[Rfam]
RNA sequence: GUUUCAAUCCUCUACGAGGCUAACGAGGUUUGCAACC
Numbered sequence: 001g002u003u004u005c006a007a008u009c010c011u012c013u014a015c016g017a018g019g020c021u022a023a024c025g026a027g028g029u030u031u032g033c034a035a036c037c
Stems, first nucleotide, its partner, number of pairs: 001036003005032003009028004

The record is a 37-nucleotide sequence from Thermus thermophilus, which matches "CRISPR RNA direct repeat element" in Rfam. The source organism's lineage runs through Bacteria, Deinococcota, Deinococci, Thermales and Thermus thermophilus. It is one of the family's seed sequences.